[Rfam]
RNA sequence: GUGCGGCCUUAUUUUCAGGGUUGCGUCCUUGCCAAAAACUAUUCUAACGAUUCCGGCGCAGCCACGAUUUCCCUGGUGUUGGCGCAGUAUUCGCGCACCCCGGUUCAUCC
Numbered sequence: 001g002u003g004c005g006g007c008c009u010u011a012u013u014u015u016c017a018g019g020g021u022u023g024c025g026u027c028c029u030u031g032c033c034a035a036a037a038a039c040u041a042u043u044c045u046a047a048c049g050a051u052u053c054c055g056g057c058g059c060a061g062c063c064a065c066g067a068u069u070u071c072c073c074u075g076g077u078g079u080u081g082g083c084g085c086a087g088u089a090u091u092c093g094c095g096c097a098c099c100c101c102g103g104u105u106c107a108u109c110c
Stems, first nucleotide, its partner, number of pairs: 020062008075099003082096004
ArcZ RNA: a 110-nucleotide RNA from [Enterobacter] lignolyticus. Rfam links the family to the GO terms protein binding and regulation of translation. Taxonomically the source falls in [Enterobacter] lignolyticus (Bacteria, Pseudomonadati, Enterobacterales, Enterobacteriaceae). On this family, see Argaman et al., Curr Biol 2001: "Novel small RNA-encoding genes in the intergenic regions of Escherichia coli". The match comes from Rfam's covariance-model search (96 bits). This RNA was discovered in E. coli during a large scale screen. SraH expression is highly abundant in stationary phase, but low levels could be detected in exponentially growing cells as well. ArcZ RNA function as an activator of the alternative sigma factor RpoS as a response of stress. ArcZ afects and is also affected by the ArcA-ArcB regulon (aerobic/anaerobic-sensing ArcA-ArcB two-component). The base pairs follow the family's consensus structure, which was predicted with PFOLD.